[Rfam]
RNA sequence: UGACACUUGGCGCUUAAGUACAUUCACUUGUGAUAUGACAUGGCUGUUCCACUUAGGACAAGGACGUGGCAUCCUAUUACCAGCCAUCAUACGAAAUUAAUAGGAUGCCACGUCCUUAUCCAGGUGGAACAACCACGUCAUCUCACAGGUGAAUCCAUUCAUUGAUAGUGUGGUU
Numbered sequence: 001u002g003a004c005a006c007u008u009g010g011c012g013c014u015u016a017a018g019u020a021c022a023u024u025c026a027c028u029u030g031u032g033a034u035a036u037g038a039c040a041u042g043g044c045u046g047u048u049c050c051a052c053u054u055a056g057g058a059c060a061a062g063g064a065c066g067u068g069g070c071a072u073c074c075u076a077u078u079a080c081c082a083g084c085c086a087u088c089a090u091a092c093g094a095a096a097u098u099a100a101u102a103g104g105a106u107g108c109c110a111c112g113u114c115c116u117u118a119u120c121c122a123g124g125u126g127g128a129a130c131a132a133c134c135a136c137g138u139c140a141u142c143u144c145a146c147a148g149g150u151g152a153a154u155c156c157a158u159u160c161a162u163u164g165a166u167a168g169u170g171u172g173g174u175u
Stems, first nucleotide, its partner, number of pairs: 001173001003171003008167002011164002014161001017159003022154007030146004035141005041135003045131004051125002054122001057120002063114003069108011086097002
Dot-bracket structure: (.(((..((.((.(..(((..(((((((.((((.(((((.(((.((((..((.(..((....(((...(((((((((((......((........)))))))))))))...)))....)).).))..)))).))).))))).)))).)))))))..))).).)).)).))).)..
Background
Rfam assigns this 175-nucleotide sequence from Oryza meridionalis to the family "MIR807 microRNA precursor family". The family's consensus secondary structure was predicted with WAR. A search with the family's covariance model found it, with a score of 145 bits. Rfam 15.1 lists 1,514 matches to the family in 13 species. A reference for the family is Luo et al. (2006), "Rice embryogenic calli express a unique set of microRNAs, suggesting regulatory roles of microRNAs in plant post-embryogenic development", FEBS Lett. Its family is annotated with miRNA-mediated post-transcriptional gene silencing and RISC complex in the Gene Ontology.